[Rfam]
RNA: Small nucleolar RNA SNORD73
RNA sequence: AAUGAAUAAUGACAAAAUGUUUUGGUCUCAGAUGAUACAUACUGAUUAUACCAUUAUCGUUUAUUUCUGACAUU
Numbered sequence: 001a002a003u004g005a006a007u008a009a010u011g012a013c014a015a016a017a018u019g020u021u022u023u024g025g026u027c028u029c030a031g032a033u034g035a036u037a038c039a040u041a042c043u044g045a046u047u048a049u050a051c052c053a054u055u056a057u058c059g060u061u062u063a064u065u066u067c068u069g070a071c072a073u074u
Stems, first nucleotide, its partner, number of pairs: 001074004